The family of this 67-nucleotide RNA sequence from Pipistrellus kuhlii is "mir-9256 microRNA precursor family". Pairs were carried over by alignment from the consensus structure, which was predicted with RNAalifold.

RNA sequence: CUAUACAUUGAGUGGCCAGAUUAUUAUGAUCUCUGAAUUUAUAAUAAUCUGGCCAUUCAGUGUAUAU
Numbered sequence: 001c002u003a004u005a006c007a008u009u010g011a012g013u014g015g016c017c018a019g020a021u022u023a024u025u026a027u028g029a030u031c032u033c034u035g036a037a038u039u040u041a042u043a044a045u046a047a048u049c050u051g052g053c054c055a056u057u058c059a060g061u062g063u064a065u066a067u
Base pairs, nucleotide, nucleotide: 004064005063006062007061008060009059010058011057012056013055014054015053016052017051019049020048021047022046023045024044025043026042027041028040

Rfam 15.1 lists 31,772 matches to the family in 5 species. It scores 81 bits against the family's covariance model. The source organism's lineage runs through Eukaryota, Craniata, Laurasiatheria, Vespertilionidae and Pipistrellus.